[Rfam]
RNA sequence: GUGCGUCUUCAGGGCGGGGUGAAACUCCCCACCGGCGGUAGGGUGCAGCGCAACGCACCAAGCCCGCGAGCGCUUGCGCAUCUGCGCAAGGUCAGCAGAUCCGGUUCAAAGCCGGAGCCGACGGUCAUAGUCCGGAUGAAAGAAGACGAGA
Numbered sequence: 001g002u003g004c005g006u007c008u009u010c011a012g013g014g015c016g017g018g019g020u021g022a023a024a025c026u027c028c029c030c031a032c033c034g035g036c037g038g039u040a041g042g043g044u045g046c047a048g049c050g051c052a053a054c055g056c057a058c059c060a061a062g063c064c065c066g067c068g069a070g071c072g073c074u075u076g077c078g079c080a081u082c083u084g085c086g087c088a089a090g091g092u093c094a095g096c097a098g099a100u101c102c103g104g105u106u107c108a109a110a111g112c113c114g115g116a117g118c119c120g121a122c123g124g125u126c127a128u129a130g131u132c133c134g135g136a137u138g139a140a141a142g143a144a145g146a147c148g149a150g151a
Base pairs, nucleotide, nucleotide: 004148005147006146007145008144009143010142017029018028019027031131032130033120034119035067036066037065038064062118063117070096071095100116101115102114103113104112122134123133124132
RNA: FMN riboswitch aptamer (RFN element)
Organism: Chitinimonas sp. BJB300